[Rfam]
RNA sequence: AUGCUUGAGCUGGUUGAUAUCGGUCCAAAUCGUCCCUGAUCAUGUCAUUUGGUCCCCUUCAACCAGCUGUGGCUA
Numbered sequence: 001a002u003g004c005u006u007g008a009g010c011u012g013g014u015u016g017a018u019a020u021c022g023g024u025c026c027a028a029a030u031c032g033u034c035c036c037u038g039a040u041c042a043u044g045u046c047a048u049u050u051g052g053u054c055c056c057c058u059u060c061a062a063c064c065a066g067c068u069g070u071g072g073c074u075a
Stems, first nucleotide, its partner, number of pairs: 003073003008068010022054002025052006
RNA: mir-133 microRNA precursor family
Organism: Darwinula stevensoni